mir-9/mir-79 microRNA precursor family: a 78-nucleotide RNA sequence from Hymenochirus boettgeri. A search with the family's covariance model found it, with a score of 67 bits. A reference for the family is Lagos-Quintana et al. (2001), "Identification of novel genes coding for small expressed RNAs", Science. The family's consensus secondary structure was predicted with RNAalifold.
[Rfam]
RNA sequence: UGAUUCCUACUUUCGGUUAUCUAGCUUUAUGACGGUUUAUUGACACUCAUACAGCUAGAUAACCAAAGAUAGAAACAA
Numbered sequence: 001u002g003a004u005u006c007c008u009a010c011u012u013u014c015g016g017u018u019a020u021c022u023a024g025c026u027u028u029a030u031g032a033c034g035g036u037u038u039a040u041u042g043a044c045a046c047u048c049a050u051a052c053a054g055c056u057a058g059a060u061a062a063c064c065a066a067a068g069a070u071a072g073a074a075a076c077a078a
Stems, first nucleotide, its partner, number of pairs: 001078001004075002007072003011068003015064012028051005